RNA: Group II catalytic intron D1-D4-1
Organism: methanotrophic endosymbiont of Bathymodiolus azoricus
RNA sequence: CGCUUGUUUGGGCAACCAUUUAAGUGAUUAAACAGAAGUCAGCAGACGGCAUAGUAGCCAAAUGCCCAUCGUAAUGGAUGGGACAGGGUGAAGGCC
Numbered sequence: 001c002g003c004u005u006g007u008u009u010g011g012g013c014a015a016c017c018a019u020u021u022a023a024g025u026g027a028u029u030a031a032a033c034a035g036a037a038g039u040c041a042g043c044a045g046a047c048g049g050c051a052u053a054g055u056a057g058c059c060a061a062a063u064g065c066c067c068a069u070c071g072u073a074a075u076g077g078a079u080g081g082g083a084c085a086g087g088g089u090g091a092a093g094g095c096c
Stems, first nucleotide, its partner, number of pairs: 001026002004023003009018003038047003048096003057089003066081003